[Rfam]
Nucleotides: 074
Stems, first nucleotide, its partner, number of pairs: 007068007015060003020055004025050001027048002
Number, partner (000 for none) and nucleotide at each position: 001000u002000u003000g004000g005000g006000u007068c008067u009066u010065u011064u012063u013062g014000c015060g016059g017058u018000c019000u020055g021054g022053g023052c024000u025050u026000g027048c028047u029000g030000u031000u032000c033000c034000u035000a036000a037000g038000g039000c040000a041000a042000u043000a044000g045000c046000c047028a048027g049000g050025a051000a052023g053022c054021c055020c056000u057000u058017a059016c060015c061000c062013c063012a064011a065010a066009a067008a068007g069000u070000a071000u072000c073000u074000g
Rfam assigns this 74-nucleotide RNA sequence from Oreochromis aureus to the family "mir-129 microRNA precursor family". The family's consensus secondary structure was predicted with RNAalifold. The source organism's lineage runs through Eukaryota, Deuterostomia, Gnathostomata, Oreochromini and Oreochromis.